[Rfam]
RNA: tRNA
Organism: Sulfurimonas sp. UBA12504
RNA sequence: GGGCUUUUAACUCAGUUGGUUAGAGUCCCCGGCUCAUAACCGGGUUGUCGUAGGUUCGAGCCCUACAAAGCCCA
Numbered sequence: 001g002g003g004c005u006u007u008u009a010a011c012u013c014a015g016u017u018g019g020u021u022a023g024a025g026u027c028c029c030c031g032g033c034u035c036a037u038a039a040c041c042g043g044g045u046u047g048u049c050g051u052a053g054g055u056u057c058g059a060g061c062c063c064u065a066c067a068a069a070g071c072c073c074a
Base pairs, nucleotide, nucleotide: 001073002072003071004070005069006068007067010026011025012024013023028044029043030042031041032040050066051065052064053063054062